[Rfam]
RNA sequence: AUAAUCGAGAGGACAGAGAAAAAAUCUGUUCUCCUACGCGGUCAAAGUCUUGGGAGGAUGCGAUCUAGGCGCGAUUAUCCGCAGCCGCCGGAAACGGAAAGCAGAUCGGACGCGUUUAAUUGCAAGGCCUCGUGCCUUGCAUUUUUUU
Numbered sequence: 001a002u003a004a005u006c007g008a009g010a011g012g013a014c015a016g017a018g019a020a021a022a023a024a025u026c027u028g029u030u031c032u033c034c035u036a037c038g039c040g041g042u043c044a045a046a047g048u049c050u051u052g053g054g055a056g057g058a059u060g061c062g063a064u065c066u067a068g069g070c071g072c073g074a075u076u077a078u079c080c081g082c083a084g085c086c087g088c089c090g091g092a093a094a095c096g097g098a099a100a101g102c103a104g105a106u107c108g109g110a111c112g113c114g115u116u117u118a119a120u121u122g123c124a125a126g127g128c129c130u131c132g133u134g135c136c137u138u139g140c141a142u143u144u145u146u147u148u
Stems, first nucleotide, its partner, number of pairs: 003148002012030006037114004047059004062107005068086003071082003088097003121141008
RNA: Alphaproteobacterial sRNA ar9